[Rfam]
RNA sequence: GAGGCAGAACCGAAAAGCCUAUAACAGAGUAGGGA
Numbered sequence: 001g002a003g004g005c006a007g008a009a010c011c012g013a014a015a016a017g018c019c020u021a022u023a024a025c026a027g028a029g030u031a032g033g034g035a
Base pairs, nucleotide, nucleotide: 002020003019004018005017010033011032
The record is a 35-nucleotide RNA, which matches "DUF805b RNA" in Rfam. Clan: DUF805 clan. By type it is a cis-regulatory element. The sequence is in the family's curated seed alignment.